Metazoan signal recognition particle RNA: a 299-nucleotide RNA from Dreissena polymorpha. The base pairs follow the family's consensus structure, which is taken from published work. A search with the family's covariance model found it, with a score of 268 bits. By type it is a non-coding RNA gene. Its family is annotated with signal recognition particle, endoplasmic reticulum targeting and SRP-dependent cotranslational protein targeting to membrane, signal sequence recognition in the Gene Ontology. On this family, see Wild et al., Curr Opin Struct Biol 2002: "Towards the structure of the mammalian signal recognition particle".

Nucleotides: 299
Stems, first nucleotide, its partner, number of pairs: 001044003004023006028041003046297005053290002058286001060284003066276007077269008086261002089258001092256005098250001103248007110238002113236005119229009128167004133162004139156007169173001176219005187210003194203003
Number, partner (000 for none) and nucleotide at each position: 001044g002043c003042c004023g005022g006021g007020a008019g009018u010000u011000g012000u013000g014000g015000c016000g017000u018009g019008c020007u021006c022005c023004u024000g025000u026000a027000a028041u029040c030039c031000a032000g033000c034000u035000a036000c037000u038000u039030g040029g041028a042003g043002g044001c045000c046297g047296g048295g049294g050293u051000c052000u053290g054289g055000g056000g057000a058286c059000g060284g061283u062282u063000u064000g065000a066276g067275g068274c069273c070272g071271g072270g073000a074000g075000c076000c077269c078268u079267a080266c081265u082264g083263u084262c085000a086261g087260g088000u089258c090000c091000g092256u093255c094254u095253g096252u097000g098250u099000c100000g101000a102000u103248c104247g105246g106245g107244c108243g109242u110238c111237c112000g113236c114235a115234c116233u117232a118000a119229g120228c121227u122226c123225g124224g125223c126222a127221u128167c129166a130165a131164u132000a133162u134161g135160g136159g137000a138000c139156c140155c141154u142153c143152g144151g145150g146000g147000g148000a149000g150145c151144c152143c153142g154141g155140g156139g157000a158000c159136u160135c161134c162133a163000g164131g165130u166129u167128g168000a169173c170000u171000a172000a173169g174000g175000a176219g177218g178217a179216a180215c181000g182000u183000a184000a185000c186000g187210g188209c189208c190000c191000a192000g193000g194203g195202u196201g197000g198000a199000a200000a201196c202195a203194c204000a205000g206000c207000a208189g209188g210187c211000a212000a213000a214000a215180g216179u217178u218177c219176c220000c221127a222126u223125g224124u225123c226122g227121a228120g229119c230000a231000g232117u233116a234115g235114u236113g237111g238110g239000a240000u241000c242109g243108c244107g245106c246105c247104c248103g249000u250098g251000a252096g253095c254094a255093g256092a257000c258089g259000u260087c261086u262084g263083g264082c265081g266080g267079u268078a269077g270072c271071c272070u273069g274068g275067c276066c277000a278000a279000u280000a281000c282062a283061a284060c285000g286058g287000g288000a289054c290053c291000c292000a293050a294049c295048c296047c297046u298000u299000u